[Rfam]
RNA: Histidine operon leader
RNA sequence: CCAUCAUCACCAUCACCCUGACUAGUCUUUUAGGCGAUGUGUGCUGGAAGACUUUUAGGAUCUUCCAGUAGUGCGAGCGCAAAGAGAGCCCCCGGAAGAUCAUCUUCCGGGGGUUUUUUUAU
Numbered sequence: 001c002c003a004u005c006a007u008c009a010c011c012a013u014c015a016c017c018c019u020g021a022c023u024a025g026u027c028u029u030u031u032a033g034g035c036g037a038u039g040u041g042u043g044c045u046g047g048a049a050g051a052c053u054u055u056u057a058g059g060a061u062c063u064u065c066c067a068g069u070a071g072u073g074c075g076a077g078c079g080c081a082a083a084g085a086g087a088g089c090c091c092c093c094g095g096a097a098g099a100u101c102a103u104c105u106u107c108c109g110g111g112g113g114u115u116u117u118u119u120u121a122u
Stems, first nucleotide, its partner, number of pairs: 008043003011039004017034005044068008083119016